[Rfam]
RNA sequence: UUUGGUCCUCGGUAGUGGUUUCCGGAAAGUUUGUUAAUUAAAUUUGCCGUGAACUUCGAUCGAUGAUCCAA
Numbered sequence: 001u002u003u004g005g006u007c008c009u010c011g012g013u014a015g016u017g018g019u020u021u022c023c024g025g026a027a028a029g030u031u032u033g034u035u036a037a038u039u040a041a042a043u044u045u046g047c048c049g050u051g052a053a054c055u056u057c058g059a060u061c062g063a064u065g066a067u068c069c070a071a
Stems, first nucleotide, its partner, number of pairs: 001071002004068004009063005017055005023049003027045007
Dot-bracket structure: ((.((((.(((((...(((((.(((.(((((((.....))))))).))).)))))...))))).)))).))
Shown here is a 71-nucleotide sequence, a member of the family "Actino-pnp RNA". The family's RNA type in Rfam is cis-regulatory element.